[Rfam]
RNA sequence: CAGCCGUGCCCGCUUCGGGCAUUUCCUCCCUGGACUUGGGGCCGCGUCUCGCGGCCCUUUUUCUUUGGGCCU
Numbered sequence: 001c002a003g004c005c006g007u008g009c010c011c012g013c014u015u016c017g018g019g020c021a022u023u024u025c026c027u028c029c030c031u032g033g034a035c036u037u038g039g040g041g042c043c044g045c046g047u048c049u050c051g052c053g054g055c056c057c058u059u060u061u062u063c064u065u066u067g068g069g070c071c072u
Stems, first nucleotide, its partner, number of pairs: 008020004039057008